[Rfam]
The record is a 475-nucleotide part of an RNA from Brugia malayi, which matches "Eukaryotic large subunit ribosomal RNA" in Rfam. Rfam's curators put it in the seed alignment.
RNA sequence: CGGAUAGAGUUAACAAAACUUAUCGGUAUUCAACCAAUCAAUUUAGCAAUCAUAAUUCAUUUCAUUAUUCAUUAAUAAUUUUUUUUUUUUUAUUAAUGAAUAAAAUGAUAUUAAUGCUAAAUUAGCAGUAUAUGCAUAGAUUGGUGUAUUUACCGAUGGUAUGCAUCGAGAACUUCAUUUUAGCAUAUUAAUACAAGUUAAUUUAGUGGACCAAUUAUUUCAAUUGAUAAUUGGAAUCCUAAAUUAUGUUGAAAUAUGUCUUAGAUGAAGUUUUUUUUUUUUUUUCCCAUAUAUGUAACUUUCACUUGAAAUAAUAGUGACAUGUAUCGAUUAUAAUUUUGCUUAUUAUUAUUUUACAUGUGGUCGCAUGCGACUUUAUCGGUAAAAAUAAUUGGUAAUAUUAUAAUAUUGUAUGCAAUAAAGUUACAUCUCGAUGUGAACGUUAAUCACCUAUCUGACCCGUCUUGAAACACGG
Numbered sequence: 001c002g003g004a005u006a007g008a009g010u011u012a013a014c015a016a017a018a019c020u021u022a023u024c025g026g027u028a029u030u031c032a033a034c035c036a037a038u039c040a041a042u043u044u045a046g047c048a049a050u051c052a053u054a055a056u057u058c059a060u061u062u063c064a065u066u067a068u069u070c071a072u073u074a075a076u077a078a079u080u081u082u083u084u085u086u087u088u089u090u091u092a093u094u095a096a097u098g099a100a101u102a103a104a105a106u107g108a109u110a111u112u113a114a115u116g117c118u119a120a121a122u123u124a125g126c127a128g129u130a131u132a133u134g135c136a137u138a139g140a141u142u143g144g145u146g147u148a149u150u151u152a153c154c155g156a157u158g159g160u161a162u163g164c165a166u167c168g169a170g171a172a173c174u175u176c177a178u179u180u181u182a183g184c185a186u187a188u189u190a191a192u193a194c195a196a197g198u199u200a201a202u203u204u205a206g207u208g209g210a211c212c213a214a215u216u217a218u219u220u221c222a223a224u225u226g227a228u229a230a231u232u233g234g235a236a237u238c239c240u241a242a243a244u245u246a247u248g249u250u251g252a253a254a255u256a257u258g259u260c261u262u263a264g265a266u267g268a269a270g271u272u273u274u275u276u277u278u279u280u281u282u283u284u285u286c287c288c289a290u291a292u293a294u295g296u297a298a299c300u301u302u303c304a305c306u307u308g309a310a311a312u313a314a315u316a317g318u319g320a321c322a323u324g325u326a327u328c329g330a331u332u333a334u335a336a337u338u339u340u341g342c343u344u345a346u347u348a349u350u351a352u353u354u355u356a357c358a359u360g361u362g363g364u365c366g367c368a369u370g371c372g373a374c375u376u377u378a379u380c381g382g383u384a385a386a387a388a389u390a391a392u393u394g395g396u397a398a399u400a401u402u403a404u405a406a407u408a409u410u411g412u413a414u415g416c417a418a419u420a421a422a423g424u425u426a427c428a429u430c431u432c433g434a435u436g437u438g439a440a441c442g443u444u445a446a447u448c449a450c451c452u453a454u455c456u457g458a459c460c461c462g463u464c465u466u467g468a469a470a471c472a473c474g475g
Base pairs, nucleotide, nucleotide: 001457002456003455004454005453006452007451009447010446011445012444017160020159021158022157023156024155025154026153027152028151164436165435166434167433168432169431170430460475461474462473463472